Rfam assigns this 219-nucleotide sequence from Pseudomonas corrugata to the family "PhrS". By type it is a small RNA. The organism belongs to Pseudomonas, within Bacteria. On this family, see Sonnleitner et al., Mol Microbiol 2011: "The small RNA PhrS stimulates synthesis of the Pseudomonas aeruginosa quinolone signal".
[Rfam]
RNA sequence: UUGGCUCCAACACAACAGGGGCAGGACCAGGAGGCCAAUCAUGUUUUUCGACAAUGUGGUGUUUGCUGGAAUGUUGACGGUCGGCUUCAUGUUGGUAUUUUUCGCCGUUUUUGGAUUAUUCAUCUGGAGAGACGCACACAAGCGCAAAAAACCGUAGGUCUUUCCGGCUGUAACGAGCACGCAAGGCAUUUUGGGCGACUUCGGUCGCCCUUUUUUUGU
Number, nucleotide and partner (000 for none) at each position: 001u000002u000003g000004g000005c000006u000007c000008c000009a000010a000011c000012a000013c104014a000015a000016c000017a000018g000019g000020g000021g000022c000023a000024g000025g000026a000027c000028c000029a000030g000031g000032a000033g000034g000035c000036c000037a000038a000039u000040c000041a000042u000043g000044u000045u000046u000047u000048u000049c000050g000051a000052c000053a000054a000055u000056g066057u065058g064059g000060u000061g000062u000063u000064u058065g057066c056067u000068g000069g000070a000071a000072u000073g000074u000075u000076g000077a000078c000079g000080g000081u000082c000083g000084g093085c000086u091087u000088c000089a000090u000091g086092u000093u084094g000095g000096u000097a000098u000099u000100u000101u000102u000103c000104g013105c000106c000107g000108u000109u000110u000111u000112u000113g000114g000115a000116u000117u000118a000119u000120u000121c000122a000123u000124c000125u000126g000127g000128a000129g000130a000131g000132a000133c000134g000135c000136a000137c000138a000139c000140a000141a000142g000143c000144g000145c000146a000147a000148a000149a000150a000151a000152c000153c000154g000155u000156a000157g000158g000159u000160c000161u000162u000163u000164c000165c000166g000167g000168c000169u000170g000171u000172a000173a000174c000175g000176a000177g187178c186179a000180c185181g000182c000183a000184a000185g180186g178187c177188a000189u000190u000191u000192u000193g210194g209195g208196c207197g206198a205199c204200u000201u000202c000203g000204g199205u198206c197207g196208c195209c194210c193211u000212u000213u000214u000215u000216u000217u000218g000219u000